[Rfam]
RNA sequence: CGAUGAGGUAGAGGUGCGGGUAAUAAGAGUAAGCAAUCGGAGUAUGACAUCGAUGAGGAUUGCCUGAAAGGAUUAUUUGCCGAAGCGUAAUGAAGGUCAAAUUCAUUAUUGCUGGUGUGUCUUCUGAAUAAGAAGCAUACUGUCAUGCAAUUUUAGUGCAUGGAGAACUACUGAUCAG
Numbered sequence: 001c002g003a004u005g006a007g008g009u010a011g012a013g014g015u016g017c018g019g020g021u022a023a024u025a026a027g028a029g030u031a032a033g034c035a036a037u038c039g040g041a042g043u044a045u046g047a048c049a050u051c052g053a054u055g056a057g058g059a060u061u062g063c064c065u066g067a068a069a070g071g072a073u074u075a076u077u078u079g080c081c082g083a084a085g086c087g088u089a090a091u092g093a094a095g096g097u098c099a100a101a102u103u104c105a106u107u108a109u110u111g112c113u114g115g116u117g118u119g120u121c122u123u124c125u126g127a128a129u130a131a132g133a134a135g136c137a138u139a140c141u142g143u144c145a146u147g148c149a150a151u152u153u154u155a156g157u158g159c160a161u162g163g164a165g166a167a168c169u170a171c172u173g174a175u176c177a178g
Base pairs, nucleotide, nucleotide: 007172008171009170010169011168016080017079018078019077020076021075022074023073024072032065033064034062035061036060037059038058084113085112086111087110088108089107090106091105092104093103094102114141115140116139117138118137119136120135122134123133124132125131143163144162145161146160147159148158149157
RNA: Lysine riboswitch aptamer
Organism: Ornithinibacillus hominis